[Rfam]
RNA sequence: GGUCAGAACCGGGGGCGCCCAGAUGGGCUGAGACGUACCCUUUGAACCUGAACCAGAUAAUGCUGGCGGAGGGAAGGUAUCAGCGCAAGGUC
Numbered sequence: 001g002g003u004c005a006g007a008a009c010c011g012g013g014g015g016c017g018c019c020c021a022g023a024u025g026g027g028c029u030g031a032g033a034c035g036u037a038c039c040c041u042u043u044g045a046a047c048c049u050g051a052a053c054c055a056g057a058u059a060a061u062g063c064u065g066g067c068g069g070a071g072g073g074a075a076g077g078u079a080u081c082a083g084c085g086c087a088a089g090g091u092c
Base pairs, nucleotide, nucleotide: 006080008078009077010076011041012040013039014038016035017028018027019026020025047072048071049070053066054065055064056063
A member of the RNA family "TPP riboswitch aptamer (THI element)" from Tritonibacter multivorans, 92 nucleotides long. NCBI's taxonomy places the organism under Bacteria, Alphaproteobacteria, Rhodobacterales, Paracoccaceae, Tritonibacter. Rfam's curators write: Vitamin B(1) in its active form thiamin pyrophosphate (TPP) is an essential coenzyme that is synthesised by coupling of pyrimidine and thiazole moieties in bacteria. The match comes from Rfam's covariance-model search (66 bits).